About this RNA:
The family of this 94-nucleotide RNA from Cairina moschata is "MIR477 microRNA precursor family". A search with the family's covariance model found it, with a score of 65 bits. Taxonomically the source falls in Cairina (Eukaryota, Craniata, Archelosauria, Coelurosauria).

RNA sequence: GACAGUUCCCCACACACCGGAAGGCAUCAAAUUUUUCAGAUACAAUUAAAACUAAAAAGGAAAAUUUGAUGCCUUCCGGUGUGUGGGGAACUGU
Numbered sequence: 001g002a003c004a005g006u007u008c009c010c011c012a013c014a015c016a017c018c019g020g021a022a023g024g025c026a027u028c029a030a031a032u033u034u035u036u037c038a039g040a041u042a043c044a045a046u047u048a049a050a051a052c053u054a055a056a057a058a059g060g061a062a063a064a065u066u067u068g069a070u071g072c073c074u075u076c077c078g079g080u081g082u083g084u085g086g087g088g089a090a091c092u093g094u
Base pairs, nucleotide, nucleotide: 003093004092005091006090008088009087010086011085012084013083014082015081016080017079018078019077021075022074023073024072025071026070027069028068029067030066031065032064033063
For this family Rfam cites "Novel and mechanical stress-responsive MicroRNAs in Populus trichocarpa that are absent from Arabidopsis" (Lu et al., Plant Cell, 2005). The family has 3 seed sequences and 63 matches in Rfam 15.1. Its family is annotated with miRNA-mediated post-transcriptional gene silencing and RISC complex in the Gene Ontology.